[Rfam]
RNA sequence: CCCCCUCCCUUUUGUAAGUCGCUCUGGAUAAGAGCGUCUGCUAAAUGACUUAAA
Numbered sequence: 001c002c003c004c005c006u007c008c009c010u011u012u013u014g015u016a017a018g019u020c021g022c023u024c025u026g027g028a029u030a031a032g033a034g035c036g037u038c039u040g041c042u043a044a045a046u047g048a049c050u051u052a053a054a
Stems, first nucleotide, its partner, number of pairs: 013043001014041003020036006
A member of the RNA family "UnaL2 LINE 3' element" from Salvelinus namaycush, 54 nucleotides long. The eel long interspersed element (LINE) UnaL2 and its partner short interspersed element (SINE) share a conserved 3' tail containing a stem-loop that is critical for their retrotransposition. Presumably, the first step of retrotransposition is the recognition of their 3' tails by UnaL2-encoded reverse transcriptase. The solution structure of a 17-nucleotide RNA derived from the 3' tail of UnaL2 was determined by NMR. The literature on the family includes a 2004 paper in RNA by Baba et al., "Solution structure of an RNA stem-loop derived from the 3' conserved region of eel LINE UnaL2". Rfam classes the family as a cis-regulatory element. Gene Ontology term of the family: transposition, RNA-mediated.